[Rfam]
RNA sequence: UAAUUACAUACAAAUUAUACUCAUAUAAAUUAAAGGAUAUGGCUUUAGAGUUUCUACCGCUUCACCGUAAAUGAUGCGACUAUGAGUAAUUAAAUAAAGAGG
Numbered sequence: 001u002a003a004u005u006a007c008a009u010a011c012a013a014a015u016u017a018u019a020c021u022c023a024u025a026u027a028a029a030u031u032a033a034a035g036g037a038u039a040u041g042g043c044u045u046u047a048g049a050g051u052u053u054c055u056a057c058c059g060c061u062u063c064a065c066c067g068u069a070a071a072u073g074a075u076g077c078g079a080c081u082a083u084g085a086g087u088a089a090u091u092a093a094a095u096a097a098a099g100a101g102g
Stems, first nucleotide, its partner, number of pairs: 018088008030048006058078003062074003
RNA: Purine riboswitch aptamer